[Rfam]
RNA sequence: GGCCACUCAGCUCUGCUUAAUCACACAGGUCCACUGUGUGCUUGCCUUGUUUUCUGGGAGGCAGAGGAAGGCUCUUCUAAUGCACAAUGGACCCUCCCAGAAUGGCCUCUCUGUUCCUAGGAGUAUGAUGGCU
Numbered sequence: 001g002g003c004c005a006c007u008c009a010g011c012u013c014u015g016c017u018u019a020a021u022c023a024c025a026c027a028g029g030u031c032c033a034c035u036g037u038g039u040g041c042u043u044g045c046c047u048u049g050u051u052u053u054c055u056g057g058g059a060g061g062c063a064g065a066g067g068a069a070g071g072c073u074c075u076u077c078u079a080a081u082g083c084a085c086a087a088u089g090g091a092c093c094c095u096c097c098c099a100g101a102a103u104g105g106c107c108u109c110u111c112u113g114u115u116c117c118u119a120g121g122a123g124u125a126u127g128a129u130g131g132c133u
Stems, first nucleotide, its partner, number of pairs: 004064001007061002011058003015054001019043002022040005074123005080118001082116001089112003096105002
RNA: Small nucleolar RNA SNORA64/SNORA10 family